[Rfam]
RNA sequence: UGUCGAGGUUUUCCUCGGCAGUUAACUGCCGCCGACUUCCUAAAAACUUCGGCAGUUAACUGCCGAGGAGCAU
Numbered sequence: 001u002g003u004c005g006a007g008g009u010u011u012u013c014c015u016c017g018g019c020a021g022u023u024a025a026c027u028g029c030c031g032c033c034g035a036c037u038u039c040c041u042a043a044a045a046a047c048u049u050c051g052g053c054a055g056u057u058a059a060c061u062g063c064c065g066a067g068g069a070g071c072a073u
Stems, first nucleotide, its partner, number of pairs: 012069002015066017

Notes:
Shown here is a 73-nucleotide RNA from Medicago truncatula, a member of the family "MIR2629 microRNA precursor family". Gene Ontology terms of the family: miRNA-mediated post-transcriptional gene silencing and RISC complex. NCBI's taxonomy places the organism under Eukaryota, Spermatophyta, fabids, Papilionoideae, Medicago.